[Rfam]
RNA sequence: AUUUUUUCUCAGCACACACUUUGACUACCAUGUCAGUACUAAUUAACUAGCACUAAUACAUUAGUGCUUUUAUGUACUUCGUGCAUUACUGCUAGUCCCCAUGAAUAAUAUAUA
Numbered sequence: 001a002u003u004u005u006u007u008c009u010c011a012g013c014a015c016a017c018a019c020u021u022u023g024a025c026u027a028c029c030a031u032g033u034c035a036g037u038a039c040u041a042a043u044u045a046a047c048u049a050g051c052a053c054u055a056a057u058a059c060a061u062u063a064g065u066g067c068u069u070u071u072a073u074g075u076a077c078u079u080c081g082u083g084c085a086u087u088a089c090u091g092c093u094a095g096u097c098c099c100c101a102u103g104a105a106u107a108a109u110a111u112a113u114a
Stems, first nucleotide, its partner, number of pairs: 005105003009101001012097001017091002022035004026030001036067002039064004072086005

The family of this 114-nucleotide RNA from Sapajus apella is "Mitochondrial DNA control region secondary structure A". A reference for the family is Pereira et al. (2008), "Evidence for variable selective pressures at a large secondary structure of the human mitochondrial DNA control region", Mol Biol Evol. The base pairs follow the family's consensus structure, which is taken from published work. The family's RNA type in Rfam is antisense RNA.